[Rfam]
RNA sequence: CUUGAUGGACCCGAGCCACAGUGGACGGUCCUCGGGCCGGCCCUGACCGUAGGUGGCCAGAAGUGCCUGAGCCUC
Numbered sequence: 001c002u003u004g005a006u007g008g009a010c011c012c013g014a015g016c017c018a019c020a021g022u023g024g025a026c027g028g029u030c031c032u033c034g035g036g037c038c039g040g041c042c043c044u045g046a047c048c049g050u051a052g053g054u055g056g057c058c059a060g061a062a063g064u065g066c067c068u069g070a071g072c073c074u075c
Stems, first nucleotide, its partner, number of pairs: 016024002031071003038065002043060003047056003

ASpks TB sRNA: a 75-nucleotide RNA from Kutzneria sp. 744. Taxonomically the source falls in Kutzneria (Bacteria, Bacillati, Actinomycetota, Pseudonocardiales). The family's RNA type in Rfam is antisense RNA.